[Rfam]
RNA sequence: GUUGGUGCCAGAACUCUGGCUGUGACUUGUGCGGUGGUUAAUGUCACAUCACAGACAGAGUUUAGGUUACUAGC
Number, nucleotide and partner (000 for none) at each position: 001g000002u000003u000004g071005g070006u069007g000008c066009c065010a000011g063012a062013a061014c060015u059016c058017u000018g000019g000020c054021u053022g052023u051024g050025a049026c000027u000028u000029g047030u046031g045032c000033g000034g000035u000036g000037g000038u000039u000040a000041a000042u000043g000044u000045c031046a030047c029048a000049u025050c024051a023052c022053a021054g020055a000056c000057a000058g016059a015060g014061u013062u012063u011064a000065g009066g008067u000068u000069a006070c005071u004072a000073g000074c000
The record is a 74-nucleotide RNA sequence from Cryptotermes secundus, which matches "mir-11 microRNA precursor family" in Rfam. Taxonomically the source falls in Cryptotermes (Eukaryota, Ecdysozoa, Panarthropoda, Hexapoda). The base pairs follow the family's consensus structure, which was predicted with RNAalifold. It scores 48 bits against the family's covariance model.